[Rfam]
RNA: Small nucleolar RNA SNORA47
Organism: Otolemur garnettii
RNA sequence: UGGAGGACUGAGAAAGUGAGGCAGUUCUGUACCAUGCUGCCUUCCACUGGUUAAGACCUCCGAAAGUGAACGGCUGCCCAGGCCGAGCAUGUCCCUCUGCCACCCUCGGAGGGGCAGCGCUAUGCUGGCCAACAGUUG
Numbered sequence: 001u002g003g004a005g006g007a008c009u010g011a012g013a014a015a016g017u018g019a020g021g022c023a024g025u026u027c028u029g030u031a032c033c034a035u036g037c038u039g040c041c042u043u044c045c046a047c048u049g050g051u052u053a054a055g056a057c058c059u060c061c062g063a064a065a066g067u068g069a070a071c072g073g074c075u076g077c078c079c080a081g082g083c084c085g086a087g088c089a090u091g092u093c094c095c096u097c098u099g100c101c102a103c104c105c106u107c108g109g110a111g112g113g114g115c116a117g118c119g120c121u122a123u124g125c126u127g128g129c130c131a132a133c134a135g136u137u138g
Stems, first nucleotide, its partner, number of pairs: 002061005015048004019042007081130003086126002089123003097117005103112002